[Rfam]
RNA sequence: UGGUGUGCGCUGGAUGUAACAGCAACUCCAUGUGGAAGCUGUAUGUGAGUUCCAGUGGAAGUGCUGUUACCUGCAGAGACCCA
Numbered sequence: 001u002g003g004u005g006u007g008c009g010c011u012g013g014a015u016g017u018a019a020c021a022g023c024a025a026c027u028c029c030a031u032g033u034g035g036a037a038g039c040u041g042u043a044u045g046u047g048a049g050u051u052c053c054a055g056u057g058g059a060a061g062u063g064c065u066g067u068u069a070c071c072u073g074c075a076g077a078g079a080c081c082c083a
Base pairs, nucleotide, nucleotide: 010076011075012074016070017069018068019067020066021065022064023063027059028058029057030056031055033054034053035052

Annotation: The record is an 83-nucleotide RNA sequence from Takifugu flavidus, which matches "mir-194 microRNA precursor family" in Rfam. A reference for the family is Lagos-Quintana et al. (2003), "New microRNAs from mouse and human", RNA. Pairs were carried over by alignment from the consensus structure, which was predicted with RNAalifold. It scores 82 bits against the family's covariance model.